Shown here is a 227-nucleotide RNA from Medicago truncatula, a member of the family "MIR2655 microRNA precursor family". Rfam 15.1 lists 892 matches to the family in 5 species. A search with the family's covariance model found it, with a score of 198 bits. The organism belongs to Medicago, within Eukaryota.
RNA sequence: CCCAUAUGUAAUAAAAAGUUCGUUUGGGUCCCUUAACUUUAUUUAAAGUAUCAGUUUGGUCCUUUCUGUUAAUUUAAUUCAAAAAAAGUUAGGUUUAGGGAUCAAACUAAUACUAAUUAAAUAAGUUAACGGACCAAAAUUUAACAUUUUUUUUGAAUUAAUUUAAAGGACCAAACCGUUACUUUAAAUAAAGUUAAGGGACCAAAACGGACCUUUUAUAUACUAGA
Numbered sequence: 001c002c003c004a005u006a007u008g009u010a011a012u013a014a015a016a017a018g019u020u021c022g023u024u025u026g027g028g029u030c031c032c033u034u035a036a037c038u039u040u041a042u043u044u045a046a047a048g049u050a051u052c053a054g055u056u057u058g059g060u061c062c063u064u065u066c067u068g069u070u071a072a073u074u075u076a077a078u079u080c081a082a083a084a085a086a087a088g089u090u091a092g093g094u095u096u097a098g099g100g101a102u103c104a105a106a107c108u109a110a111u112a113c114u115a116a117u118u119a120a121a122u123a124a125g126u127u128a129a130c131g132g133a134c135c136a137a138a139a140u141u142u143a144a145c146a147u148u149u150u151u152u153u154u155g156a157a158u159u160a161a162u163u164u165a166a167a168g169g170a171c172c173a174a175a176c177c178g179u180u181a182c183u184u185u186a187a188a189u190a191a192a193g194u195u196a197a198g199g200g201a202c203c204a205a206a207a208c209g210g211a212c213c214u215u216u217u218a219u220a221u222a223c224u225a226g227a
Base pairs, nucleotide, nucleotide: 005222006221007220008219023207024206025205027203028202029201031199032198033197034196035195036194037193038192039191040190041189042188043187045185046184047183